[Rfam]
RNA sequence: GUGUCCCCUAGAGUUCCCCUGAAUACUUCAUUGGGAGCCCUUAUUUGGAUCAAAACUUUUAUCUUCCCACUGAAGUGUUUGGGGGAACUCCUGGUGUCAU
Number, nucleotide and partner (000 for none) at each position: 001g000002u000003g000004u000005c096006c000007c094008c093009u000010a000011g090012a089013g088014u087015u086016c085017c084018c083019c082020u081021g000022a080023a079024u077025a076026c075027u074028u073029c072030a071031u000032u069033g068034g067035g066036a000037g000038c000039c000040c000041u000042u000043a000044u000045u000046u000047g000048g000049a000050u000051c000052a000053a000054a000055a000056c000057u000058u000059u000060u000061a000062u000063c000064u000065u000066c035067c034068c033069a032070c000071u030072g029073a028074a027075g026076u025077g024078u000079u023080u022081g020082g019083g018084g017085g016086a015087a014088c013089u012090c011091c000092u000093g008094g007095u000096g005097u000098c000099a000100u000